[Rfam]
RNA sequence: CAGUCAGUGGAAGAAGUGAUUGGGCUAUGGGCUUGUCAAAGCUCGGGCCCUGGAAAGUCGCCGGGCCACCAUUCCGCAGAGAUGCGGCCUCGGUAACGAGAGAUUCUUGUGCUCGGAGAGACAUUAUCGGCUGAGACAUGUGUAUGGAGCCUGUCUCUCCAGUCAAGAUAUUAUGGCCAGUUUAACAGUAAUUCACUUCCCUAACGGGAUUCAACAGAACGGGGCUUACUUCCACUGACA
Numbered sequence: 001c002a003g004u005c006a007g008u009g010g011a012a013g014a015a016g017u018g019a020u021u022g023g024g025c026u027a028u029g030g031g032c033u034u035g036u037c038a039a040a041g042c043u044c045g046g047g048c049c050c051u052g053g054a055a056a057g058u059c060g061c062c063g064g065g066c067c068a069c070c071a072u073u074c075c076g077c078a079g080a081g082a083u084g085c086g087g088c089c090u091c092g093g094u095a096a097c098g099a100g101a102g103a104u105u106c107u108u109g110u111g112c113u114c115g116g117a118g119a120g121a122c123a124u125u126a127u128c129g130g131c132u133g134a135g136a137c138a139u140g141u142g143u144a145u146g147g148a149g150c151c152u153g154u155c156u157c158u159c160c161a162g163u164c165a166a167g168a169u170a171u172u173a174u175g176g177c178c179a180g181u182u183u184a185a186c187a188g189u190a191a192u193u194c195a196c197u198u199c200c201c202u203a204a205c206g207g208g209a210u211u212c213a214a215c216a217g218a219a220c221g222g223g224g225c226u227u228a229c230u231u232c233c234a235c236u237g238a239c240a
Stems, first nucleotide, its partner, number of pairs: 003239009014198006022050004029044006055227003059224001061222002075086004089100004104170001110165002113162001115160001117158004129151003138145002199208003
This 240-nucleotide RNA sequence from Brassica rapa belongs to the Rfam family "RNase MRP". Rfam classes the family as a ribozyme. It scores 79 bits against the family's covariance model. The base pairs follow the family's consensus structure, which is taken from published work. The organism belongs to Brassica, within Eukaryota.